[Rfam]
RNA sequence: AGUAAGUGUUGCAAAAUACGCGGCCUGAAAAAAUAGAAACUAGCCGACGCUUUUUUAAAGUGUCGGUUAUUUUUUUGC
Number, nucleotide and partner (000 for none) at each position: 001a000002g000003u000004a000005a000006g000007u000008g000009u000010u000011g021012c020013a000014a000015a000016a000017u000018a000019c000020g012021c011022g000023g000024c000025c000026u000027g000028a000029a000030a000031a000032a000033a000034u000035a000036g000037a000038a000039a000040c000041u069042a068043g067044c066045c065046g064047a063048c062049g061050c000051u000052u000053u000054u000055u000056u000057a000058a000059a000060g000061u049062g048063u047064c046065g045066g044067u043068u042069a041070u000071u000072u000073u000074u000075u000076u000077g000078c000
This 78-nucleotide RNA belongs to the Rfam family "Enterobacterial sRNA STnc240".